[Rfam]
RNA: RT-12 RNA
Organism: Klebsiella michiganensis
RNA sequence: AAACAUUUGCGGUGAAAUGCGCAAUUGGAUUCUGUUGAGUUCUUUGUGUAUGAGAAGGUUGGAGAAAGACCACUUUGUUAAGCCGGGGUGAUGUUUUUUUGAAUGACCGCAGUUCGAAAUCGCCCCGGUUUCACAAU
Dot-bracket structure: ........[[[[[...((((((((...................))))))))........(((.......)))..((((.(..((((((((((.......(((((.]]]]].)))))..))))))))))..).)))).